[Rfam]
RNA sequence: ACCAGGGGAUGUCACUCUGUCUCCAUGCUCAAUCAAUCAUGAGACAGUGUGUCCUCCCUUGGAU
Numbered sequence: 001a002c003c004a005g006g007g008g009a010u011g012u013c014a015c016u017c018u019g020u021c022u023c024c025a026u027g028c029u030c031a032a033u034c035a036a037u038c039a040u041g042a043g044a045c046a047g048u049g050u051g052u053c054c055u056c057c058c059u060u061g062g063a064u
Base pairs, nucleotide, nucleotide: 002062003061006057007056008055011052013051014050015049017047018046019045020044021043022042025040026039027038
RNA: mir-1994 microRNA precursor family
Organism: Candidula unifasciata